[Rfam]
RNA: Archaeal large subunit ribosomal RNA, nucleotides 2759 to 3032
Organism: Sulfolobales archaeon SCGC AB-777_K20
RNA sequence: GGGGGCCUGAGGGGAAGGUACCCCUAGUACGAGAGGAACAGGGUACCGGGGCCUCUGGUUUACCGGUUGUCCUGCCGGGCAGCGCCGGGCAGCUACGCCCUGAGGGGUAACCGCUGAAAGCAUCUAAGCGGGAACCCCUCCCCGAAAAGAGGCCCCCGUGGGGGGUUAACCCCCGAGACCCCUCCCCUAGAACAGGGGGUUGAUGGGGCGGGGGUGCAAGCCCCGAGGGCGAAAGCCCGAGGGGUUCAGCCCGCCGCUCCCAAUCGGGGGAGCC
Numbered sequence: 001g002g003g004g005g006c007c008u009g010a011g012g013g014g015a016a017g018g019u020a021c022c023c024c025u026a027g028u029a030c031g032a033g034a035g036g037a038a039c040a041g042g043g044u045a046c047c048g049g050g051g052c053c054u055c056u057g058g059u060u061u062a063c064c065g066g067u068u069g070u071c072c073u074g075c076c077g078g079g080c081a082g083c084g085c086c087g088g089g090c091a092g093c094u095a096c097g098c099c100c101u102g103a104g105g106g107g108u109a110a111c112c113g114c115u116g117a118a119a120g121c122a123u124c125u126a127a128g129c130g131g132g133a134a135c136c137c138c139u140c141c142c143c144g145a146a147a148a149g150a151g152g153c154c155c156c157c158g159u160g161g162g163g164g165g166u167u168a169a170c171c172c173c174c175g176a177g178a179c180c181c182c183u184c185c186c187c188u189a190g191a192a193c194a195g196g197g198g199g200u201u202g203a204u205g206g207g208g209c210g211g212g213g214g215u216g217c218a219a220g221c222c223c224c225g226a227g228g229g230c231g232a233a234a235g236c237c238c239g240a241g242g243g244g245u246u247c248a249g250c251c252c253g254c255c256g257c258u259c260c261c262a263a264u265c266g267g268g269g270g271a272g273c274c
Base pairs, nucleotide, nucleotide: 001157002156003155004154005153006152007151008150011143012142013141014140017047018046019045020044021043022042023041048101049100050099051098052097056095057094058093063088064087065086066085067084068081069080070079071078072077104138105137106136111131112130113129114128115127179269180268181267182266183199184198185197186196187195204262205261206260207258208257209256210255211254212252213251214250220245221244222243223242224241227238228237229236